[Rfam]
RNA: skipping-rope RNA
RNA sequence: AGUAUUUGAGGAUAGAAAAGGUAGCUAUCAGUCAUUUCUAAAAUGUACAAAUGUGGGAGUACCACCCCACCAAAUACU
Numbered sequence: 001a002g003u004a005u006u007u008g009a010g011g012a013u014a015g016a017a018a019a020g021g022u023a024g025c026u027a028u029c030a031g032u033c034a035u036u037u038c039u040a041a042a043a044u045g046u047a048c049a050a051a052u053g054u055g056g057g058a059g060u061a062c063c064a065c066c067c068c069a070c071c072a073a074a075u076a077c078u
Base pairs, nucleotide, nucleotide: 001078002077003076004075005074006073007072008071011029012028013027014026015025020063021062022061023060031048033045034044035043053070054069055068056067057066